[Rfam]
RNA sequence: AACGGGGAUGCUGAAAACCGAAUAGAGUAAGCA
Numbered sequence: 001a002a003c004g005g006g007g008a009u010g011c012u013g014a015a016a017a018c019c020g021a022a023u024a025g026a027g028u029a030a031g032c033a
Stems, first nucleotide, its partner, number of pairs: 003020003010032003
Dot-bracket structure: ..(((....[[[.....))).........]]].
Shown here is a 33-nucleotide RNA, a member of the family "DUF805b RNA".
It is annotated as a cis-regulatory element.